[Rfam]
RNA sequence: GAUUUCAUCUGAAAAAGUCAUCAAUAACAAAGUUGUAUAACUCAUCAAGAUCUAUAACUUAUAUUUUGGUCAUUUCUUCAUCCGACAAAGUGAUUUGUAAGAUUGUUCACAAAAUGUACAUAUCUUAUAUAGUUUUUAUAAAACUAUAUAAGAUAUGUACAUUUUGUGAACAAUCUUACAAAUCACUUUGUCAGAUGAAGAAAUGACCAAAAUAUAAGUUAUAGAUCUUGAUGAGUUAUACAACUUUGUUUUUGAUGACUUUUUCAGUUGAAAUC
Numbered sequence: 001g002a003u004u005u006c007a008u009c010u011g012a013a014a015a016a017g018u019c020a021u022c023a024a025u026a027a028c029a030a031a032g033u034u035g036u037a038u039a040a041c042u043c044a045u046c047a048a049g050a051u052c053u054a055u056a057a058c059u060u061a062u063a064u065u066u067u068g069g070u071c072a073u074u075u076c077u078u079c080a081u082c083c084g085a086c087a088a089a090g091u092g093a094u095u096u097g098u099a100a101g102a103u104u105g106u107u108c109a110c111a112a113a114a115u116g117u118a119c120a121u122a123u124c125u126u127a128u129a130u131a132g133u134u135u136u137u138a139u140a141a142a143a144c145u146a147u148a149u150a151a152g153a154u155a156u157g158u159a160c161a162u163u164u165u166g167u168g169a170a171c172a173a174u175c176u177u178a179c180a181a182a183u184c185a186c187u188u189u190g191u192c193a194g195a196u197g198a199a200g201a202a203a204u205g206a207c208c209a210a211a212a213u214a215u216a217a218g219u220u221a222u223a224g225a226u227c228u229u230g231a232u233g234a235g236u237u238a239u240a241c242a243a244c245u246u247u248g249u250u251u252u253u254g255a256u257g258a259c260u261u262u263u264u265c266a267g268u269u270g271a272a273a274u275c
Base pairs, nucleotide, nucleotide: 014262015261016260017259018258019257020256021255023253024252026250027249030246031245032244033243034242035241036240037239038238039237040236041235042234044232045231046230047229048228049227050226051225052224053223055221056220057219058218059217060216061215062214063213064212065211066210067209069207070206071205072204073203074202075201077199078198079197080196081195084192085191086190087189088188089187090186091185092184094182096180097179098178099177100176102174103173104172105171106170107169108168109167110166111165112164113163115161116160118158119157120156121155122154123153132144134143135142136141
RNA: MIR821 microRNA precursor family
Organism: Oryza glumipatula